[Rfam]
RNA: T-box leader
RNA sequence: CGCAAUGCGAGGAAAGAGACUAGUAGGCAGGAUAAUAGGAUUUCAGGGAGGAGAUGCCGCAGACUGAAAGCAUCUCUAUCGCUAUGCUUGCCGAAUUCCCUCUGGAGCAGUUCCCUCAACCCAUCCGUAUGGCAGUAGGGGAUACCGGGUAGUCCCGUUACCGAUUCGAUGAGUGAGGCCGGAGUUUCUUCGGUCUAAUUAGGGUGGUACCGCGAGAAAAUCGUCCCUUUC
Numbered sequence: 001c002g003c004a005a006u007g008c009g010a011g012g013a014a015a016g017a018g019a020c021u022a023g024u025a026g027g028c029a030g031g032a033u034a035a036u037a038g039g040a041u042u043u044c045a046g047g048g049a050g051g052a053g054a055u056g057c058c059g060c061a062g063a064c065u066g067a068a069a070g071c072a073u074c075u076c077u078a079u080c081g082c083u084a085u086g087c088u089u090g091c092c093g094a095a096u097u098c099c100c101u102c103u104g105g106a107g108c109a110g111u112u113c114c115c116u117c118a119a120c121c122c123a124u125c126c127g128u129a130u131g132g133c134a135g136u137a138g139g140g141g142a143u144a145c146c147g148g149g150u151a152g153u154c155c156c157g158u159u160a161c162c163g164a165u166u167c168g169a170u171g172a173g174u175g176a177g178g179c180c181g182g183a184g185u186u187u188c189u190u191c192g193g194u195c196u197a198a199u200u201a202g203g204g205u206g207g208u209a210c211c212g213c214g215a216g217a218a219a220a221u222c223g224u225c226c227c228u229u230u231c
Stems, first nucleotide, its partner, number of pairs: 007108002015103004026092006039080003050077008111144001112142005146157003176196007201228004212224004